This 144-nucleotide RNA from Jeotgalibacillus alimentarius belongs to the Rfam family "c-di-AMP riboswitch aptamer (ydaO/yuaA leader)". It scores 106 bits against the family's covariance model.
[Rfam]
RNA sequence: GCCUUUAAAUCGCUGAAACAUUUAUGUGCGGGGGACCCAUUUUUUUGGCCAACUGGUCUUGGGGUGAAUCUUUCAUUUGAAAGAAGGGAUACUCUUCAGUCCCUAAUCCGACAGCUAACCCCGUAAGCGUUAAGGAGAGAAAGG
Numbered sequence: 001g002c003c004u005u006u007a008a009a010u011c012g013c014u015g016a017a018a019c020a021u022u023u024a025u026g027u028g029c030g031g032g033g034g035a036c037c038c039a040u041u042u043u044u045u046u047g048g049c050c051a052a053c054u055g056g057u058c059u060u061g062g063g064g065u066g067a068a069u070c071u072u073u074c075a076u077u078u079g080a081a082a083g084a085a086g087g088g089a090u091a092c093u094c095u096u097c098a099g100u101c102c103c104u105a106a107u108c109c110g111a112c113a114g115c116u117a118a119c120c121c122c123g124u125a126a127g128c129g130u131u132a133a134g135g136a137g138a139g140a141a142a143g144g
Base pairs, nucleotide, nucleotide: 011129012128013127014126018027019026020025028124029123030122031121032120033119038061039060062109063108064107070083071082072081073080086103087102088101089100